[Rfam]
RNA sequence: GUUUUCGGGUAAUCGCGGUCUAUUUUAUAUAGGCUGAGGAAAGUCCAAGCUUGCACAGGCUGAGAUGCCUGUAGUGAUCGUGCUUGCUGAAAAAAUAAGGCAAGGUACCUUUUAUGGUAACGGCAGAUGAACUGGCUAAGGUUUCGGCUAAGCUUAAGUAGUCUUGAAAAGUGCCACAGAGACGAACGGAUGCGGAAACGCAUCUGGUGGAACGAGGUAAACCCCGCGAGCAGGUAACCCAAACUUUGGUAGGGGCGCUUCAUGACGGAAAUGAACUAAUCAUGGGGGCGAGUCUUUGACUCGGAGAUAGAUGAUUACCACCGAUUUCGGAUUCCUGAACCGAAUGACGUACGGAACGUGGCUUAUAGAG
Numbered sequence: 001g002u003u004u005u006c007g008g009g010u011a012a013u014c015g016c017g018g019u020c021u022a023u024u025u026u027a028u029a030u031a032g033g034c035u036g037a038g039g040a041a042a043g044u045c046c047a048a049g050c051u052u053g054c055a056c057a058g059g060c061u062g063a064g065a066u067g068c069c070u071g072u073a074g075u076g077a078u079c080g081u082g083c084u085u086g087c088u089g090a091a092a093a094a095a096u097a098a099g100g101c102a103a104g105g106u107a108c109c110u111u112u113u114a115u116g117g118u119a120a121c122g123g124c125a126g127a128u129g130a131a132c133u134g135g136c137u138a139a140g141g142u143u144u145c146g147g148c149u150a151a152g153c154u155u156a157a158g159u160a161g162u163c164u165u166g167a168a169a170a171g172u173g174c175c176a177c178a179g180a181g182a183c184g185a186a187c188g189g190a191u192g193c194g195g196a197a198a199c200g201c202a203u204c205u206g207g208u209g210g211a212a213c214g215a216g217g218u219a220a221a222c223c224c225c226g227c228g229a230g231c232a233g234g235u236a237a238c239c240c241a242a243a244c245u246u247u248g249g250u251a252g253g254g255g256c257g258c259u260u261c262a263u264g265a266c267g268g269a270a271a272u273g274a275a276c277u278a279a280u281c282a283u284g285g286g287g288g289c290g291a292g293u294c295u296u297u298g299a300c301u302c303g304g305a306g307a308u309a310g311a312u313g314a315u316u317a318c319c320a321c322c323g324a325u326u327u328c329g330g331a332u333u334c335c336u337g338a339a340c341c342g343a344a345u346g347a348c349g350u351a352c353g354g355a356a357c358g359u360g361g362c363u364u365a366u367a368g369a370g
Stems, first nucleotide, its partner, number of pairs: 004370003007366001008319007016036006041364003045361003049357001050234005055072006078229005083104006105121001106119004122224002125164004134154003140149003171222002173218003187206008238254003258287007289303005321349001326344004
Dot-bracket structure: ...(((((((((((.((((((.........))))))....[[[.[[[.[(((((((((((......)))))).....(((((((((((..........))))))(((((......)))).)((.((((.....(((...(((....)))..)))......))))......(((((...........((((((((....)))))))).........)))..))))))))))))))...(((...........)))...(((((((................))))))).(((((.....))))).........))))))).(....((((...........))))....).......].]]]]]].).)))
A member of the RNA family "Bacterial RNase P class B" from Ligilactobacillus ruminis, 370 nucleotides long.
Lineage of the source: Bacteria > Lactobacillales > Lactobacillaceae > Ligilactobacillus > Ligilactobacillus ruminis.
A search with the family's covariance model found it, with a score of 310 bits.
Pairs were carried over by alignment from the consensus structure, which is taken from published work.
Ribonuclease P (RNase P) is a ubiquitous endoribonuclease, found in archaea, bacteria and eukarya as well as chloroplasts and mitochondria. Its best characterised activity is the generation of mature 5'-ends of tRNAs by cleaving the 5'-leader elements of precursor-tRNAs. Cellular RNase Ps are ribonucleoproteins.
Rfam classes the family as a ribozyme.